[Rfam]
RNA: Vault RNA
Organism: Acanthochromis polyacanthus
RNA sequence: GCACUGGUUUAGCUCAGUGGUUACUUCGACCAUCAAAUCUCACUGCAGAUUUCACUGAUCUCCAUCCCUCUCUGGGAUCAAACCACGGGUGCUGUCCAGUGUUUUC
Numbered sequence: 001g002c003a004c005u006g007g008u009u010u011a012g013c014u015c016a017g018u019g020g021u022u023a024c025u026u027c028g029a030c031c032a033u034c035a036a037a038u039c040u041c042a043c044u045g046c047a048g049a050u051u052u053c054a055c056u057g058a059u060c061u062c063c064a065u066c067c068c069u070c071u072c073u074g075g076g077a078u079c080a081a082a083c084c085a086c087g088g089g090u091g092c093u094g095u096c097c098a099g100u101g102u103u104u105u106c
Stems, first nucleotide, its partner, number of pairs: 002101006012090004017086004025082002028079002